Shown here is a 64-nucleotide sequence from Ottowia beijingensis, a member of the family "Betaproteobacteria toxic small RNA". NCBI's taxonomy places the organism under Bacteria, Pseudomonadati, Pseudomonadota, Betaproteobacteria, Ottowia. Pairs were carried over by alignment from the consensus structure, which was predicted with WAR. Rfam 15.1 lists 951 matches to the family in 508 species. The match comes from Rfam's covariance-model search (55 bits). Rfam describes the family as follows. Overexpression in amino aid rich medium attenuates growth, suggesting role in repressing amino acid intake and metabolism.
RNA sequence: UGUCUCCUCCACCCCUUCAACAAGGUGGAUUAAGCCCCGAACCGCAAGGUCCGGGGCUUUUUUG
Dot-bracket structure: .......((((((..........))))))....((((((.(........).)))))).......